The family of this 132-nucleotide RNA sequence from Actinidia chinensis is "mir-166 microRNA precursor family".
Rfam's curators write: This family represents the plant microRNA (miRNA) precursor mir-166.
Pairs were carried over by alignment from the consensus structure, which was predicted with PFOLD.
A reference for the family is Reinhart et al. (2002), "MicroRNAs in plants", Genes Dev.
The match comes from Rfam's covariance-model search (80 bits).
Rfam 15.1 lists 2,599 matches to the family in 229 species.

Nucleotides: 132
Stems, first nucleotide, its partner, number of pairs: 002131003006127008016117006024109003
Number, partner (000 for none) and nucleotide at each position: 001000u002131u003130u004129g005000a006127g007126g008125g009124g010123a011122a012121u013120g014000u015000u016117g017116u018115c019114u020113g021112g022000c023000u024109c025108g026107a027000g028000g029000a030000c031000c032000c033000u034000u035000u036000g037000c038000u039000u040000g041000a042000u043000c044000c045000g046000u047000u048000u049000g050000u051000c052000u053000u054000g055000c056000a057000g058000a059000u060000c061000u062000g063000u064000a065000c066000c067000c068000u069000u070000u071000c072000g073000a074000u075000c076000g077000a078000a079000g080000a081000g082000a083000u084000c085000a086000u087000u088000g089000g090000a091000u092000c093000a094000u095000g096000c097000g098000a099000c100000a101000g102000u103000g104000u105000u106000g107026u108025c109024g110000g111000a112021c113020c114019a115018g116017g117016c118000u119000u120013c121012a122011u123010u124009c125008c126007c127006c128000c129004c130003a131002a132000u